[Rfam]
mir-9256 microRNA precursor family: a 67-nucleotide RNA from Pipistrellus kuhlii. Rfam 15.1 lists 31,772 matches to the family in 5 species. Rfam links the family to the GO terms RISC complex and miRNA-mediated post-transcriptional gene silencing.
RNA sequence: ACAUACACUUAGUGGCCAGAUUAUUAUGACCUUUGAACACAUAGUAAUCUGGCCACUUAGUGUAUAU
Numbered sequence: 001a002c003a004u005a006c007a008c009u010u011a012g013u014g015g016c017c018a019g020a021u022u023a024u025u026a027u028g029a030c031c032u033u034u035g036a037a038c039a040c041a042u043a044g045u046a047a048u049c050u051g052g053c054c055a056c057u058u059a060g061u062g063u064a065u066a067u
Stems, first nucleotide, its partner, number of pairs: 004064006011057007019049010
It scores 80 bits against the family's covariance model.